[Rfam]
RNA sequence: CCUUAGGAGUGUUGUACCAAACGCGAGUAACGAAAAAUAGUGAAAGUGGGCACGAUGAAUAAGGAA
Number, nucleotide and partner (000 for none) at each position: 001c064002c063003u062004u061005a060006g000007g000008a000009g053010u052011g051012u050013u049014g000015u000016a000017c000018c000019a000020a000021a000022c048023g047024c046025g000026a000027g000028u000029a000030a041031c040032g000033a000034a000035a000036a000037a000038u000039a000040g031041u030042g000043a000044a000045a000046g024047u023048g022049g013050g012051c011052a010053c009054g000055a000056u000057g000058a000059a000060u005061a004062a003063g002064g001065a000066a000
Record summary
The family of this 66-nucleotide RNA sequence from Thermoflavimicrobium daqui is "RAGATH-18 RNA". The match comes from Rfam's covariance-model search (62 bits). The family's RNA type in Rfam is small RNA.